[Rfam]
A member of the RNA family "Guanidine-II riboswitch aptamer (mini-ykkC)" from Paraburkholderia saeva, 45 nucleotides long. Simpler in structure and has fewer highly conserved nucleotide positions than the ykkC-yxkD leader. Despite this each of its two stem-loop structures directly bind free guanidine. It scores 37 bits against the family's covariance model. Taxonomically the source falls in Paraburkholderia (Bacteria, Pseudomonadota, Betaproteobacteria, Burkholderiales). The base pairs follow the family's consensus structure, which is taken from published work.

RNA sequence: GUGUAAGGACGACCUUGCACGUUCUGUCUGGCGGGGACGACCCCA
Numbered sequence: 001g002u003g004u005a006a007g008g009a010c011g012a013c014c015u016u017g018c019a020c021g022u023u024c025u026g027u028c029u030g031g032c033g034g035g036g037a038c039g040a041c042c043c044c045a
Base pairs, nucleotide, nucleotide: 001020002019003018004017005016006015007014008013033044034043035042036041